[Rfam]
RNA sequence: AUCUGGAGAGAGGCGCAUUGCGCGCCCACCGAAGGGGAACCCCGGCACGCGCCGGGCAAAGCUCUCAGGUACCGGGACAGAU
Numbered sequence: 001a002u003c004u005g006g007a008g009a010g011a012g013g014c015g016c017a018u019u020g021c022g023c024g025c026c027c028a029c030c031g032a033a034g035g036g037g038a039a040c041c042c043c044g045g046c047a048c049g050c051g052c053c054g055g056g057c058a059a060a061g062c063u064c065u066c067a068g069g070u071a072c073c074g075g076g077a078c079a080g081a082u
Base pairs, nucleotide, nucleotide: 001082002081003080004079005078012026013025014024015023028070029069030068031066032065035064036063037062042056
RNA: Glycine riboswitch aptamer
Organism: Achromobacter sp. AONIH1